The family of this 72-nucleotide sequence from Dentiscutata erythropus is "tRNA".
RNA sequence: GGUUGCGUGGUGUAAUGGUUAGCACCCAGGACUCUGAAUCCUGUGAUCCGAGUUCGAAUCUCGGCGUGACCU
Numbered sequence: 001g002g003u004u005g006c007g008u009g010g011u012g013u014a015a016u017g018g019u020u021a022g023c024a025c026c027c028a029g030g031a032c033u034c035u036g037a038a039u040c041c042u043g044u045g046a047u048c049c050g051a052g053u054u055c056g057a058a059u060c061u062c063g064g065c066g067u068g069a070c071c072u
Stems, first nucleotide, its partner, number of pairs: 001071007010025004027043005048064005
About the family: Transfer RNA (tRNA) molecules are approximately 80 nucleotides in length.